[Rfam]
RNA sequence: CCCCUCGACAACGACGACCUGGUCUCCUACAUCAUCACCGGGCUGGAUGGCGAUUACAAUUCUGUUGUAUCUGCUAUCUUGGCGCGGAUCGAGCCAAUUACAGUUGGCGAACUGUAUUCCCAGUUGCUCAGUUAUGAGA
Numbered sequence: 001c002c003c004c005u006c007g008a009c010a011a012c013g014a015c016g017a018c019c020u021g022g023u024c025u026c027c028u029a030c031a032u033c034a035u036c037a038c039c040g041g042g043c044u045g046g047a048u049g050g051c052g053a054u055u056a057c058a059a060u061u062c063u064g065u066u067g068u069a070u071c072u073g074c075u076a077u078c079u080u081g082g083c084g085c086g087g088a089u090c091g092a093g094c095c096a097a098u099u100a101c102a103g104u105u106g107g108c109g110a111a112c113u114g115u116a117u118u119c120c121c122a123g124u125u126g127c128u129c130a131g132u133u134a135u136g137a138g139a
Stems, first nucleotide, its partner, number of pairs: 004138004093108006
The family of this 139-nucleotide RNA sequence from Eragrostis curvula is "Small nucleolar RNA Z247".